[Rfam]
RNA sequence: AUUCUGUACACAUGUAUCGCUGACGUCGUCAGCAACAUGCCCAAGUAGUCUGGAUCCGCAAGACUACGAUGCGGUUUACCGCAUUGAUCCCUCCCAAGAUCGCCAUAGCUUCCGGUAGCGCGAUCAAUCGACUUAGUCGAUGGAAGC
Numbered sequence: 001a002u003u004c005u006g007u008a009c010a011c012a013u014g015u016a017u018c019g020c021u022g023a024c025g026u027c028g029u030c031a032g033c034a035a036c037a038u039g040c041c042c043a044a045g046u047a048g049u050c051u052g053g054a055u056c057c058g059c060a061a062g063a064c065u066a067c068g069a070u071g072c073g074g075u076u077u078a079c080c081g082c083a084u085u086g087a088u089c090c091c092u093c094c095c096a097a098g099a100u101c102g103c104c105a106u107a108g109c110u111u112c113c114g115g116u117a118g119c120g121c122g123a124u125c126a127a128u129c130g131a132c133u134u135a136g137u138c139g140a141u142g143g144a145a146g147c
Stems, first nucleotide, its partner, number of pairs: 011039004019033006045067006053089004068085007120147002127141006
The record is a 147-nucleotide sequence from Pseudomonas agarici, which matches "radC RNA" in Rfam. The base pairs follow the family's consensus structure, which is taken from published work. The family's RNA type in Rfam is cis-regulatory element. NCBI's taxonomy places the organism under Bacteria, Pseudomonadota, Gammaproteobacteria, Pseudomonadaceae, Pseudomonas.